[Rfam]
RNA sequence: UUUGGGAAAUGAUGCGAAGAUUCAAACAGAGGCGCCAGCUCUGCUGAUUAAUCUAUUGCACGUCAGUCUGAUCCCAAA
Numbered sequence: 001u002u003u004g005g006g007a008a009a010u011g012a013u014g015c016g017a018a019g020a021u022u023c024a025a026a027c028a029g030a031g032g033c034g035c036c037a038g039c040u041c042u043g044c045u046g047a048u049u050a051a052u053c054u055a056u057u058g059c060a061c062g063u064c065a066g067u068c069u070g071a072u073c074c075c076a077a078a
Stems, first nucleotide, its partner, number of pairs: 001078007
Description
The record is a 78-nucleotide sequence from Populus trichocarpa, which matches "Small nucleolar RNA Z122" in Rfam. The source organism's lineage runs through Eukaryota, Streptophytina, Magnoliopsida, fabids and Populus. For this family Rfam cites "The high diversity of snoRNAs in plants: identification and comparative study of 120 snoRNA genes from Oryza sativa" (Chen et al., Nucleic Acids Res, 2003). The family has 23 seed sequences and 822 matches in Rfam 15.1. The family's consensus secondary structure was predicted with PFOLD.